[Rfam]
RNA: Alphaproteobacteria transfer-messenger RNA
Organism: Rhizobium sp. RU20A
RNA sequence: CCCCUUCCCUUCAUCGUUAUGACAUCUUAUAUCCAUCGGGCCGUCUUCGGGCGGCUAUGGCAAUAAACGGACGAUGAAAUAAACCUAUUGGACCCGGGGGCGGUACCCGGCGCCUCCACCAGGAACCGGCGGACGAUCAUGCCCGAGGCCGGCUGCUGAUGGGGGCGAAAUAGGAUCGACAAGGGUGUAAAGAUCGCUCUUUUGCUCGGCAUUGUACCACCGUUAUCGGGCUAAAAUUGUAGUUGCAAACGACAACUAUGCUGAAGCUCGUCUCGCUGCUUAAUCGCAGUGCGACACUUCAAAUCAAGCCCUUGCGGGUAGCACCGUAAGGCGGGGUCCGAAGGCACCUGGCAACAGAAGCCUUCACC
Numbered sequence: 001c002c003c004c005u006u007c008c009c010u011u012c013a014u015c016g017u018u019a020u021g022a023c024a025u026c027u028u029a030u031a032u033c034c035a036u037c038g039g040g041c042c043g044u045c046u047u048c049g050g051g052c053g054g055c056u057a058u059g060g061c062a063a064u065a066a067a068c069g070g071a072c073g074a075u076g077a078a079a080u081a082a083a084c085c086u087a088u089u090g091g092a093c094c095c096g097g098g099g100g101c102g103g104u105a106c107c108c109g110g111c112g113c114c115u116c117c118a119c120c121a122g123g124a125a126c127c128g129g130c131g132g133a134c135g136a137u138c139a140u141g142c143c144c145g146a147g148g149c150c151g152g153c154u155g156c157u158g159a160u161g162g163g164g165g166c167g168a169a170a171u172a173g174g175a176u177c178g179a180c181a182a183g184g185g186u187g188u189a190a191a192g193a194u195c196g197c198u199c200u201u202u203u204g205c206u207c208g209g210c211a212u213u214g215u216a217c218c219a220c221c222g223u224u225a226u227c228g229g230g231c232u233a234a235a236a237u238u239g240u241a242g243u244u245g246c247a248a249a250c251g252a253c254a255a256c257u258a259u260g261c262u263g264a265a266g267c268u269c270g271u272c273u274c275g276c277u278g279c280u281u282a283a284u285c286g287c288a289g290u291g292c293g294a295c296a297c298u299u300c301a302a303a304u305c306a307a308g309c310c311c312u313u314g315c316g317g318g319u320a321g322c323a324c325c326g327u328a329a330g331g332c333g334g335g336g337u338c339c340g341a342a343g344g345c346a347c348c349u350g351g352c353a354a355c356a357g358a359a360g361c362c363u364u365c366a367c368c
Stems, first nucleotide, its partner, number of pairs: 040055005059206005069199002072196004084185003088182003094110005111167007207222003212233001214231001217229002334349004340365006